[Rfam]
RNA: Small nucleolar RNA SNORA25
RNA sequence: AGGUCAUUUCAAAGAGGGCUUGUUGGACUGUGAAACCAAAAGCUCUUAACGCUGUGACCAGAGAUUGAUGUUCUCCACAGAACAAAACAAGCACUCAAUAGUGCUGUGUUUUUCUGAGAAGAUACAUGC
Numbered sequence: 001a002g003g004u005c006a007u008u009u010c011a012a013a014g015a016g017g018g019c020u021u022g023u024u025g026g027a028c029u030g031u032g033a034a035a036c037c038a039a040a041a042g043c044u045c046u047u048a049a050c051g052c053u054g055u056g057a058c059c060a061g062a063g064a065u066u067g068a069u070g071u072u073c074u075c076c077a078c079a080g081a082a083c084a085a086a087a088c089a090a091g092c093a094c095u096c097a098a099u100a101g102u103g104c105u106g107u108g109u110u111u112u113u114c115u116g117a118g119a120a121g122a123u124a125c126a127u128g129c
Stems, first nucleotide, its partner, number of pairs: 002059006014047008023039001026037001072122003076118001079115004087107003091104005